Rfam assigns this 129-nucleotide RNA from Catagonus wagneri to the family "Small nucleolar RNA SNORA11". The match comes from Rfam's covariance-model search (83 bits). By type it is an H/ACA-box small nucleolar RNA.
RNA sequence: GGGGUGUGCUCAGAGCAGAAUGCCCAAAGAAUGGCUCCUCUGUUUACAACACACCCAAUAGAAACUUGGGUUUACUCCUCACUGGUGGCAAGAUACUUUGGCCUUCCUGUGACACCAUGCCCUAUACAU
Numbered sequence: 001g002g003g004g005u006g007u008g009c010u011c012a013g014a015g016c017a018g019a020a021u022g023c024c025c026a027a028a029g030a031a032u033g034g035c036u037c038c039u040c041u042g043u044u045u046a047c048a049a050c051a052c053a054c055c056c057a058a059u060a061g062a063a064a065c066u067u068g069g070g071u072u073u074a075c076u077c078c079u080c081a082c083u084g085g086u087g088g089c090a091a092g093a094u095a096c097u098u099u100g101g102c103c104u105u106c107c108u109g110u111g112a113c114a115c116c117a118u119g120c121c122c123u124a125u126a127c128a129u
Stems, first nucleotide, its partner, number of pairs: 002056007013045007022035003069122002072119001082111001085104001087102001089100002091097002
U107 (SNORA11) is a member of the H/ACA class of snoRNAs that guide the sites of modification of uridines to pseudouridines. This snoRNA was identified by RT-PCR from blood cells and its expression confirmed by Northern blot analysis.